Metazoan signal recognition particle RNA: a 290-nucleotide RNA from Gallus gallus. On this family, see Wild et al., Curr Opin Struct Biol 2002: "Towards the structure of the mammalian signal recognition particle". The sequence is in the family's curated seed alignment. Its Rfam clan is "SRP clan". NCBI's taxonomy places the organism under Eukaryota, Eumetazoa, Deuterostomia, Amniota, Gallus.
RNA sequence: GCCGGGCGCGGUGGCGCACGCCUGUAGUCCCAGCUACUCGGGAGGCUGAGCCCGCCGGAUCGCUUGAGCCCAGGAGUUCUGGGCUGCAGUGCGCUAUGCCGAGCGGGCGUCCGCGCUAAGGCCGGCAUCAAUAUGGUGAGCCCCGGGGAGCCGAGGCACACCAGGUUGCCUAAGGAGGGGUGAACCGGCCCAGGUCGGAAACGGAGCAGGUCAAAACUCCCGUGCCGGUCAGUAGCGGGAUCGCGCCUGUGAAUAGCCACUGCAGCGUAGCCUGGGCAACACAGAGAGAC
Numbered sequence: 001g002c003c004g005g006g007c008g009c010g011g012u013g014g015c016g017c018a019c020g021c022c023u024g025u026a027g028u029c030c031c032a033g034c035u036a037c038u039c040g041g042g043a044g045g046c047u048g049a050g051c052c053c054g055c056c057g058g059a060u061c062g063c064u065u066g067a068g069c070c071c072a073g074g075a076g077u078u079c080u081g082g083g084c085u086g087c088a089g090u091g092c093g094c095u096a097u098g099c100c101g102a103g104c105g106g107g108c109g110u111c112c113g114c115g116c117u118a119a120g121g122c123c124g125g126c127a128u129c130a131a132u133a134u135g136g137u138g139a140g141c142c143c144c145g146g147g148g149a150g151c152c153g154a155g156g157c158a159c160a161c162c163a164g165g166u167u168g169c170c171u172a173a174g175g176a177g178g179g180g181u182g183a184a185c186c187g188g189c190c191c192a193g194g195u196c197g198g199a200a201a202c203g204g205a206g207c208a209g210g211u212c213a214a215a216a217c218u219c220c221c222g223u224g225c226c227g228g229u230c231a232g233u234a235g236c237g238g239g240a241u242c243g244c245g246c247c248u249g250u251g252a253a254u255a256g257c258c259a260c261u262g263c264a265g266c267g268u269a270g271c272c273u274g275g276g277c278a279a280c281a282c283a284g285a286g287a288g289a290c
Base pairs, nucleotide, nucleotide: 001046002045003044004023005022006021007020008019010017028043029042030041060287061286063284064283068277069276070275071274072273073272074271079270080269081268083266084265085264086263087262088261089260090259091258093257094256095255096254097253099251103250104249105248106247107246108245109244110243111239112238114237115236116235117234118233120230121229122228123227124226125225126224127223128222129168130167131166132165134163135162136161137160138159140157141156142155144153145152146151169175170174177220178219179218180217181216187212188211189210190209195204196203197202